[Rfam]
RNA sequence: UUGCGGGUCAUCUGGGGAGUAGCCGCCCGCGCUUUAUUGCGGGACCUGCCGUCAACAUACUCGGUCGAGAGGCCGUGGCGCGCAGGAGGACGGGAAACCGUUCGGGUGAGACCAAUGACGCAUCGCGGUUCCGCCCGGCCGGGCGGGGGCUGCAUGCGUCGUUGCGUUCACUCGUCGCCCGGCCC
Numbered sequence: 001u002u003g004c005g006g007g008u009c010a011u012c013u014g015g016g017g018a019g020u021a022g023c024c025g026c027c028c029g030c031g032c033u034u035u036a037u038u039g040c041g042g043g044a045c046c047u048g049c050c051g052u053c054a055a056c057a058u059a060c061u062c063g064g065u066c067g068a069g070a071g072g073c074c075g076u077g078g079c080g081c082g083c084a085g086g087a088g089g090a091c092g093g094g095a096a097a098c099c100g101u102u103c104g105g106g107u108g109a110g111a112c113c114a115a116u117g118a119c120g121c122a123u124c125g126c127g128g129u130u131c132c133g134c135c136c137g138g139c140c141g142g143g144c145g146g147g148g149g150c151u152g153c154a155u156g157c158g159u160c161g162u163u164g165c166g167u168u169c170a171c172u173c174g175u176c177g178c179c180c181g182g183c184c185c
Stems, first nucleotide, its partner, number of pairs: 027042002045086005050080005062075005088184002091181004
RNA: Manganese Mn2+ riboswitch aptamer (yybP-ykoY)
Organism: Novosphingobium sp. Leaf2